Shown here is a 46-nucleotide RNA sequence from Saccharothrix sp. NRRL B-16314, a member of the family "L31-Actinobacteria ribosomal protein leader". A reference for the family is Eckert and Weinberg (2020), "Discovery of 20 novel ribosomal leader candidates in bacteria and archaea", BMC Microbiol. By type it is a cis-regulatory leader.

RNA sequence: CCGGCUCCGGUUCACCCCGAAGAACAGCAACGGGGACCCGGCGGCC
Numbered sequence: 001c002c003g004g005c006u007c008c009g010g011u012u013c014a015c016c017c018c019g020a021a022g023a024a025c026a027g028c029a030a031c032g033g034g035g036a037c038c039c040g041g042c043g044g045c046c
Stems, first nucleotide, its partner, number of pairs: 003046003007041004015035005
Dot-bracket structure: ..(((.((((....(((((...........)))))..))))..)))